Rfam assigns this 109-nucleotide RNA from Virgibacillus oceani to the family "SAM riboswitch aptamer (S box leader)". Lineage of the source: Bacteria > Bacillota > Bacilli > Bacillaceae > Virgibacillus. The family has 457 seed sequences and 9,625 matches in Rfam 15.1. A search with the family's covariance model found it, with a score of 93 bits. Pairs were carried over by alignment from the consensus structure, which is taken from published work.

RNA sequence: UUCUUAUCUAGAGAGGUGGAGGGAUAUGGCCCAUUGAAACCUCGGCAACAGGUUCUUCAUUCGAAUACUGUGCCAAUUCCAGCAAGCGUGAUAGCUUGAAAGAUAGGAA
Dot-bracket structure: ((((((((....(((((...(((...[[[)))......)))))((((.((.((((.......))))..))))))...(]]].(((((......)))))..)))))))))
Numbered sequence: 001u002u003c004u005u006a007u008c009u010a011g012a013g014a015g016g017u018g019g020a021g022g023g024a025u026a027u028g029g030c031c032c033a034u035u036g037a038a039a040c041c042u043c044g045g046c047a048a049c050a051g052g053u054u055c056u057u058c059a060u061u062c063g064a065a066u067a068c069u070g071u072g073c074c075a076a077u078u079c080c081a082g083c084a085a086g087c088g089u090g091a092u093a094g095c096u097u098g099a100a101a102g103a104u105a106g107g108a109a
Stems, first nucleotide, its partner, number of pairs: 001109008013043005021032003027081003044074004049070002052066004078101001083098005